[Rfam]
RNA sequence: UGGUAUACAGAUGCACCCUGAUUCCAAGCCCUAAGAGAUUUUUUGAUCUUUUAGGGCUUUUUCU
Numbered sequence: 001u002g003g004u005a006u007a008c009a010g011a012u013g014c015a016c017c018c019u020g021a022u023u024c025c026a027a028g029c030c031c032u033a034a035g036a037g038a039u040u041u042u043u044u045g046a047u048c049u050u051u052u053a054g055g056g057c058u059u060u061u062u063c064u
Stems, first nucleotide, its partner, number of pairs: 002017003029056011
A member of the RNA family "Nitrogen stress-induced RNA 1" from cf. Phormidesmis sp. LEGE 11477, 64 nucleotides long. It scores 42 bits against the family's covariance model. By type it is a small RNA. The pairing is the family consensus, mapped onto this sequence. Rfam 15.1 lists 962 matches to the family in 163 species. Lineage of the source: Bacteria > Cyanophyceae > Leptolyngbyales > Leptolyngbyaceae > Phormidesmis.